Rfam assigns this 77-nucleotide sequence from Hucho hucho to the family "mir-192/215 microRNA precursor family".
Taxonomically the source falls in Hucho (Eukaryota, Metazoa, Vertebrata, Teleostei).
A search with the family's covariance model found it, with a score of 73 bits.
Rfam 15.1 lists 810 matches to the family in 628 species.

RNA sequence: GCAUGGUGAUGACCUAUGAAUUGACAGCCAGUGUUUGCAACACGACUGCCUGUCAGUUAUGUAGGCCACUGCUGUGU
Numbered sequence: 001g002c003a004u005g006g007u008g009a010u011g012a013c014c015u016a017u018g019a020a021u022u023g024a025c026a027g028c029c030a031g032u033g034u035u036u037g038c039a040a041c042a043c044g045a046c047u048g049c050c051u052g053u054c055a056g057u058u059a060u061g062u063a064g065g066c067c068a069c070u071g072c073u074g075u076g077u
Base pairs, nucleotide, nucleotide: 001077002076003075004074005073006072007071008070010068011067013065014064015063016062019058020057021056022055023054024053025052026051027050029048030047031046